This 102-nucleotide RNA sequence from Bacillus sp. V59.32b belongs to the Rfam family "Purine riboswitch aptamer".
[Rfam]
RNA sequence: CUUUCGCUUUUAUAUACCCUUCAUAUAUACUCGAUAAUAUGGAUCGAAAGUUUCUACCAAAUCACCGUAAAUGAUUUGACUAUGAAGGCAGAUUUUAUUUGG
Numbered sequence: 001c002u003u004u005c006g007c008u009u010u011u012a013u014a015u016a017c018c019c020u021u022c023a024u025a026u027a028u029a030c031u032c033g034a035u036a037a038u039a040u041g042g043a044u045c046g047a048a049a050g051u052u053u054c055u056a057c058c059a060a061a062u063c064a065c066c067g068u069a070a071a072u073g074a075u076u077u078g079a080c081u082a083u084g085a086a087g088g089c090a091g092a093u094u095u096u097a098u099u100u101g102g
Base pairs, nucleotide, nucleotide: 018088019087020086021085022084023083024082025081031047032046033045034044035043058078059077060076061075062074063073064072
Dot-bracket structure: .................((((((((.....(((((.......)))))..........(((((((.......)))))))..))))))))..............

The source organism's lineage runs through Bacteria, Bacillota, Caryophanales, Bacillaceae and Bacillus.